[Rfam]
RNA sequence: CUAUCCUUUAAGUUAAUCCAGAGAGGUUGGCAAGGAUGUUAAUGUUUUACUGGUAAUAGUCAUGCCGGAAUGUUUUUUAACAUAACUCCUUGCCGCCUGGGGCAGGGAGUUUUCAAUU
Number, nucleotide and partner (000 for none) at each position: 001c000002u000003a037004u036005c035006c034007u033008u032009u000010a000011a000012g000013u030014u029015a028016a027017u026018c025019c000020a000021g000022a000023g000024a000025g018026g017027u016028u015029g014030g013031c000032a008033a007034g006035g005036a004037u003038g000039u000040u000041a077042a076043u000044g074045u000046u072047u000048u070049a000050c068051u067052g066053g065054u064055a000056a000057u000058a000059g000060u000061c000062a000063u000064g054065c053066c052067g051068g050069a000070a048071u000072g046073u000074u044075u000076u042077u041078u000079a000080a000081c000082a113083u000084a111085a110086c109087u108088c107089c106090u105091u104092g103093c102094c101095g000096c000097c000098u000099g000100g000101g094102g093103c092104a091105g090106g089107g088108a087109g086110u085111u084112u000113u082114c000115a000116a000117u000118u000
Background: This 118-nucleotide sequence from Propionispora sp. 2/2-37 belongs to the Rfam family "PyrR binding site". The literature on the family includes a 2001 paper in Nucleic Acids Res by Bonner et al., "Molecular recognition of pyr mRNA by the Bacillus subtilis attenuation regulatory protein PyrR". Lineage of the source: Bacteria > Bacillati > Bacillota > Sporomusaceae > Propionispora. Pairs were carried over by alignment from the consensus structure, which is taken from published work.